The family of this 99-nucleotide RNA from Kingdonia uniflora is "Small nucleolar RNA R30/Z108".
The source organism's lineage runs through Eukaryota, Magnoliopsida, Mesangiospermae, Circaeasteraceae and Kingdonia.
On this family, see Marker et al., Curr Biol 2002: "Experimental RNomics. Identification of 140 Candidates for Small Non-Messenger RNAs in the Plant Arabidopsis thaliana".
Its family is annotated with RNA processing and nucleolus in the Gene Ontology.
From the family's description: snoR30 is a C/D box small nucleolar RNA which acts as a methylation guide for 18S ribosomal RNA in plants.
It scores 72 bits against the family's covariance model.

Nucleotides: 099
Stems, first nucleotide, its partner, number of pairs: 006099004
Number, partner (000 for none) and nucleotide at each position: 001000a002000g003000a004000g005000a006099u007098u008097a009096c010000g011000a012000u013000g014000a015000g016000g017000a018000u019000a020000a021000c022000a023000a024000g025000c026000u027000c028000u029000c030000u031000c032000u033000u034000c035000a036000g037000a038000u039000u040000u041000g042000a043000g044000g045000u046000a047000u048000g049000a050000g051000g052000u053000c054000a055000a056000u057000u058000a059000u060000a061000g062000g063000c064000c065000g066000a067000a068000u069000c070000g071000a072000a073000c074000c075000u076000a077000a078000u079000a080000c081000a082000a083000u084000u085000g086000c087000c088000a089000c090000u091000a092000c093000u094000g095000a096009g097008u098007a099006a